[Rfam]
RNA sequence: AGCUCAGUGAUUGCAACCACUCACAUUGGUUUUAUACGCUAUUCUGAUUGGUACUGUUGAAAAGUUAAAGACUUUUGAGAGCU
Numbered sequence: 001a002g003c004u005c006a007g008u009g010a011u012u013g014c015a016a017c018c019a020c021u022c023a024c025a026u027u028g029g030u031u032u033u034a035u036a037c038g039c040u041a042u043u044c045u046g047a048u049u050g051g052u053a054c055u056g057u058u059g060a061a062a063a064g065u066u067a068a069a070g071a072c073u074u075u076u077g078a079g080a081g082c083u
Base pairs, nucleotide, nucleotide: 001083002082003081004080005079
RNA: Small nucleolar RNA U54